About this RNA
This 85-nucleotide RNA sequence from Pongo abelii belongs to the Rfam family "mir-571 microRNA precursor family". The family has 4 seed sequences and 202 matches in Rfam 15.1. The source organism's lineage runs through Eukaryota, Metazoa, Vertebrata, Hominidae and Pongo. The family's consensus secondary structure was predicted with RNAalifold.
[Rfam]
RNA sequence: UCUGAGACCAAGUUCAGUGCACCAUUUCCUUGUCUGUAGCCAUGUCUGUGGGCCCUUAAGUCUGCCACCUAAAUGAGAGCCUGCU
Numbered sequence: 001u002c003u004g005a006g007a008c009c010a011a012g013u014u015c016a017g018u019g020c021a022c023c024a025u026u027u028c029c030u031u032g033u034c035u036g037u038a039g040c041c042a043u044g045u046c047u048g049u050g051g052g053c054c055c056u057u058a059a060g061u062c063u064g065c066c067a068c069c070u071a072a073a074u075g076a077g078a079g080c081c082u083g084c085u
Base pairs, nucleotide, nucleotide: 003083004082006080009077012074013073014072016070017069018067019066022064026060027059032053033052034051035050036049037048038047039046